RNA sequence: GGCCUCCUGGUGCUCACCACAGGCUGUGUCCUCACACGGUGUAUAAAGAGGAGGCAGAAUGAACCCAGCCCAUGCACACCCCAGCCCUGGCCCCAGGCCUGGUCUGUACUGUGAACAGGGGAACAUGG
Number, nucleotide and partner (000 for none) at each position: 001g000002g055003c054004c053005u052006c051007c050008u049009g000010g000011u000012g000013c000014u000015c000016a000017c000018c000019a000020c039021a000022g037023g000024c000025u000026g000027u036028g035029u034030c000031c000032u000033c000034a029035c028036a027037c022038g000039g020040u000041g000042u000043a000044u000045a000046a000047a000048g000049a008050g007051g006052a005053g004054g003055c002056a000057g000058a000059a000060u000061g000062a000063a000064c000065c000066c000067a000068g000069c119070c118071c000072a000073u115074g000075c000076a000077c000078a000079c000080c000081c000082c106083a105084g104085c000086c102087c101088u000089g099090g098091c097092c000093c000094c000095a000096g000097g091098c090099c089100u000101g087102g086103u000104c084105u083106g082107u000108a000109c000110u000111g000112u000113g000114a000115a073116c000117a000118g070119g069120g000121g000122a000123a000124c000125a000126u000127g000128g000